[Rfam]
RNA: msiK RNA
Organism: Herbiconiux flava
RNA sequence: CGGUUCCAUCCAUCACAACGGAUCGUCCGGCACGUACCUGCCGGUGAAGGAGAAAUGAA
Numbered sequence: 001c002g003g004u005u006c007c008a009u010c011c012a013u014c015a016c017a018a019c020g021g022a023u024c025g026u027c028c029g030g031c032a033c034g035u036a037c038c039u040g041c042c043g044g045u046g047a048a049g050g051a052g053a054a055a056u057g058a059a
Base pairs, nucleotide, nucleotide: 009051010050011049013047014046015045027044028043029042030041031040032039